Rfam assigns this 101-nucleotide RNA sequence from Paenibacillus uliginis to the family "TPP riboswitch aptamer (THI element)".
RNA sequence: AAGCUGAACUAGGGGUGCCUCGUGCUGAGAGACGAAUUGUUCGUCAACCCUUACUACCCGAUCUAGGUCAUACUAGCGUGGGGAAGUGGAGCUUUAUGUUU
Numbered sequence: 001a002a003g004c005u006g007a008a009c010u011a012g013g014g015g016u017g018c019c020u021c022g023u024g025c026u027g028a029g030a031g032a033c034g035a036a037u038u039g040u041u042c043g044u045c046a047a048c049c050c051u052u053a054c055u056a057c058c059c060g061a062u063c064u065a066g067g068u069c070a071u072a073c074u075a076g077c078g079u080g081g082g083g084a085a086g087u088g089g090a091g092c093u094u095u096a097u098g099u100u101u
Base pairs, nucleotide, nucleotide: 008087009086010085011051012050013049014048017025018024032044033043034042035041036040057082058081059080060079063076064075065074066073
Notes:
The match comes from Rfam's covariance-model search (64 bits).